[Rfam]
RNA sequence: CAGGCGACGGCGGCGCGCGUUACUCAGGCGCCGGGCUGUGCGCUCGAGUCAGGUACCUGAAGUAGCGCGCGCUGCCGCCGCCG
Numbered sequence: 001c002a003g004g005c006g007a008c009g010g011c012g013g014c015g016c017g018c019g020u021u022a023c024u025c026a027g028g029c030g031c032c033g034g035g036c037u038g039u040g041c042g043c044u045c046g047a048g049u050c051a052g053g054u055a056c057c058u059g060a061a062g063u064a065g066c067g068c069g070c071g072c073u074g075c076c077g078c079c080g081c082c083g
Base pairs, nucleotide, nucleotide: 009076010075011074012073014071016069017068018067019066020065021064022063030054031053032052034050035049036048037047

Notes: The record is an 83-nucleotide RNA sequence from Chrysodeixis includens, which matches "mir-275 microRNA precursor family" in Rfam. Lineage of the source: Eukaryota > Dicondylia > Neolepidoptera > Obtectomera > Chrysodeixis. Pairs were carried over by alignment from the consensus structure, which was predicted with RNAalifold.